[Rfam]
RNA sequence: ACAUAUGUUCAGGGGAGCUUGUGAGCAGGCUGAGAGGAAGUAAUCCAACUUCGACCCUUAAACCUGAUUUGGGUAAUGCCAACGUAGGAAGAAGUGAGAAAUCAGCU
Numbered sequence: 001a002c003a004u005a006u007g008u009u010c011a012g013g014g015g016a017g018c019u020u021g022u023g024a025g026c027a028g029g030c031u032g033a034g035a036g037g038a039a040g041u042a043a044u045c046c047a048a049c050u051u052c053g054a055c056c057c058u059u060a061a062a063c064c065u066g067a068u069u070u071g072g073g074u075a076a077u078g079c080c081a082a083c084g085u086a087g088g089a090a091g092a093a094g095u096g097a098g099a100a101a102u103c104a105g106c107u
Stems, first nucleotide, its partner, number of pairs: 008093003011058004017030005037052005063088004069082004